[Rfam]
RNA: Nucleoid-associated noncoding RNA 4 (CssrE)
Organism: Shigella boydii
RNA sequence: AGCCGGAUAAGGCGCUCGCGCCACAUCCGGCAACGAUGCCGACUGCCUGAUGCGACGCUGACCGCGCCUUAUCAGGCU
Numbered sequence: 001a002g003c004c005g006g007a008u009a010a011g012g013c014g015c016u017c018g019c020g021c022c023a024c025a026u027c028c029g030g031c032a033a034c035g036a037u038g039c040c041g042a043c044u045g046c047c048u049g050a051u052g053c054g055a056c057g058c059u060g061a062c063c064g065c066g067c068c069u070u071a072u073c074a075g076g077c078u
Stems, first nucleotide, its partner, number of pairs: 002031007011022004045077008054068001056066003